[Rfam]
RNA sequence: AAGUGUAAAGAUAAAAACACAGUUCCGGUUGGUAGUCCGGACGUAGCAAAUGCUAUCAGUAACCUGCCUCCUUUGGUUGUCCCUUCUUUACUAAGUAAAU
Numbered sequence: 001a002a003g004u005g006u007a008a009a010g011a012u013a014a015a016a017a018c019a020c021a022g023u024u025c026c027g028g029u030u031g032g033u034a035g036u037c038c039g040g041a042c043g044u045a046g047c048a049a050a051u052g053c054u055a056u057c058a059g060u061a062a063c064c065u066g067c068c069u070c071c072u073u074u075g076g077u078u079g080u081c082c083c084u085u086c087u088u089u090a091c092u093a094a095g096u097a098a099a100u
Stems, first nucleotide, its partner, number of pairs: 005091007022042002025040004043056005066077003
Rfam assigns this 100-nucleotide RNA sequence from Cellulosilyticum lentocellum to the family "azaaromatic riboswitch aptamer (yjdF RNA)". The match comes from Rfam's covariance-model search (92 bits). Pairs were carried over by alignment from the consensus structure, which is taken from published work.